[Rfam]
RNA sequence: GGCCCAAAUUCCAAAUAGAGUAGAUUAGGAUGAUCAUCUGAUCCUGCUAAACUACACUACUUCGAGUUUGAGCCC
Number, nucleotide and partner (000 for none) at each position: 001g074002g073003c072004c000005c070006a069007a068008a067009u066010u000011c064012c000013a062014a061015a000016u059017a058018g057019a000020g055021u054022a053023g052024a000025u050026u049027a048028g047029g000030a045031u000032g043033a042034u041035c040036a000037u000038c000039u000040g035041a034042u033043c032044c000045u030046g000047c028048u027049a026050a025051a000052c023053u022054a021055c020056a000057c018058u017059a016060c000061u014062u013063c000064g011065a000066g009067u008068u007069u006070g005071a000072g003073c002074c001075c000